This 348-nucleotide sequence from Streptococcus merionis belongs to the Rfam family "transfer-messenger RNA". About the family: Bacterial tmRNA, also known as 10Sa RNA or SsrA, is named for its dual tRNA and mRNA-like properties. Its role is to liberate the mRNA from a stalled ribosome. To accomplish this part of the tmRNA is used as a reading frame that ends in a translation stop signal. Rfam classes the family as a non-coding RNA gene. Pairs were carried over by alignment from the consensus structure, which is taken from published work. For this family Rfam cites "Variations on the tmRNA gene" (Mao et al., RNA Biol, 2010).
RNA sequence: GGGGUCGUUACGGAUUCGACAGGCAUUAUGAGGCAUGUUCUGCAACUCGUGUGGCGACGUAAACGCUCAGUUAAAUAUAACUGCAAAAAAUACAAACUCUUACGCUUUAGCAGCUUAAUAACCUGCGGGCGUGACCAAGGGCUGUUUGCUUACGGCAGCCUAAGGUCUUAAAAAUAGUAAGCUGGUGUCUGGAGGGUGUCUCACCUCAGGUCACGAGAUCUUGAGACUCGCCAAUGCUAGGCUUGAACCUUGUGUCGAGCCUUGGUUAAACGAAUACAAGGUCUAUGGUUGUAGACGAAUAUGUUGGCAGGUGUUUGGACGUGGGUUCGACUCCCACCGGCUCCAUAU
Numbered sequence: 001g002g003g004g005u006c007g008u009u010a011c012g013g014a015u016u017c018g019a020c021a022g023g024c025a026u027u028a029u030g031a032g033g034c035a036u037g038u039u040c041u042g043c044a045a046c047u048c049g050u051g052u053g054g055c056g057a058c059g060u061a062a063a064c065g066c067u068c069a070g071u072u073a074a075a076u077a078u079a080a081c082u083g084c085a086a087a088a089a090a091u092a093c094a095a096a097c098u099c100u101u102a103c104g105c106u107u108u109a110g111c112a113g114c115u116u117a118a119u120a121a122c123c124u125g126c127g128g129g130c131g132u133g134a135c136c137a138a139g140g141g142c143u144g145u146u147u148g149c150u151u152a153c154g155g156c157a158g159c160c161u162a163a164g165g166u167c168u169u170a171a172a173a174a175u176a177g178u179a180a181g182c183u184g185g186u187g188u189c190u191g192g193a194g195g196g197u198g199u200c201u202c203a204c205c206u207c208a209g210g211u212c213a214c215g216a217g218a219u220c221u222u223g224a225g226a227c228u229c230g231c232c233a234a235u236g237c238u239a240g241g242c243u244u245g246a247a248c249c250u251u252g253u254g255u256c257g258a259g260c261c262u263u264g265g266u267u268a269a270a271c272g273a274a275u276a277c278a279a280g281g282u283c284u285a286u287g288g289u290u291g292u293a294g295a296c297g298a299a300u301a302u303g304u305u306g307g308c309a310g311g312u313g314u315u316u317g318g319a320c321g322u323g324g325g326u327u328c329g330a331c332u333c334c335c336a337c338c339g340g341c342u343c344c345a346u347a348u
Stems, first nucleotide, its partner, number of pairs: 001344007020317008032305009043291005048059003053067002107129002110126004133167004139161007148182006185214003189210002192207002198227005230266005236260003240256003245283002248280001321337005